ZMP/ZTP riboswitch aptamer (pfl RNA motif): an 82-nucleotide RNA from Micromonospora lupini. The literature on the family includes a 2015 paper in Nat Struct Mol Biol by Jones and Ferre-D'Amare, "Recognition of the bacterial alarmone ZMP through long-distance association of two RNA subdomains". It scores 40 bits against the family's covariance model.
RNA sequence: CGAACCACCGGCGACUGGCGGCACGGGGAUGGUGGAACCAUCGGGGAGCCUCUCGCGGACGUCGACCGCCUGGGCGCCCGCG
Numbered sequence: 001c002g003a004a005c006c007a008c009c010g011g012c013g014a015c016u017g018g019c020g021g022c023a024c025g026g027g028g029a030u031g032g033u034g035g036a037a038c039c040a041u042c043g044g045g046g047a048g049c050c051u052c053u054c055g056c057g058g059a060c061g062u063c064g065a066c067c068g069c070c071u072g073g074g075c076g077c078c079c080g081c082g
Stems, first nucleotide, its partner, number of pairs: 005055001007053001010050003015045002017070005029041004060076004